[Rfam]
RNA sequence: UCCAUCGCGAGGUGGAAUCUGAAGGAAGCUGGAGGCAAAAUUCCGACCCGAGGAACACGAACAUCAUCAGGCAUAAGGCAUGGGAUGAGUUUGCAUAACAAAACGAAGUCCAAUCAACUACACGGACGUGUCAAUGUAAAUGGUGCGGGUACAUGGAAGGAAAAUGAAUCGU
Dot-bracket structure: ((((((....))))))...........((.(...(.....((((((((((...........(((((....(((...((((((((((..((((........))))...))))...............))))))..)))...))))))))))...)))))......)...).))
RNA: Group II catalytic intron D1-D4-3